[Rfam]
RNA: ASdes TB sRNA
RNA sequence: AGUGCCACCGGGUCGACCGCGCGCGUCACCGUGAGGUAGUCGCGCAGGGCGAUGCCGUGCCGGCCCUC
Numbered sequence: 001a002g003u004g005c006c007a008c009c010g011g012g013u014c015g016a017c018c019g020c021g022c023g024c025g026u027c028a029c030c031g032u033g034a035g036g037u038a039g040u041c042g043c044g045c046a047g048g049g050c051g052a053u054g055c056c057g058u059g060c061c062g063g064c065c066c067u068c
Stems, first nucleotide, its partner, number of pairs: 005062001008059001011030003015027003035056004040052004